The record is a 104-nucleotide RNA sequence from Paraconexibacter algicola, which matches "SAM riboswitch aptamer (S box leader)" in Rfam. Its family is annotated with regulation of gene expression in the Gene Ontology. The source organism's lineage runs through Bacteria, Bacillati, Thermoleophilia, Paraconexibacteraceae and Paraconexibacter.

[Rfam]
RNA sequence: GACACAUCCAGAGGGGUGGAGGGACUGGCCCGAUGAAACCCCGGCAACCACGAGAGCGGCUCGUCCAGCGCUCGCGAAAGGUGCCAAUUCCUGACAGAUGUGGC
Numbered sequence: 001g002a003c004a005c006a007u008c009c010a011g012a013g014g015g016g017u018g019g020a021g022g023g024a025c026u027g028g029c030c031c032g033a034u035g036a037a038a039c040c041c042c043g044g045c046a047a048c049c050a051c052g053a054g055a056g057c058g059g060c061u062c063g064u065c066c067a068g069c070g071c072u073c074g075c076g077a078a079a080g081g082u083g084c085c086a087a088u089u090c091c092u093g094a095c096a097g098a099u100g101u102g103g104c
Base pairs, nucleotide, nucleotide: 001104003102004101005100006099007098008097013042014041015040016039017038021031022030023029025093027091028090043085044084045083046082048081049080051076052075089096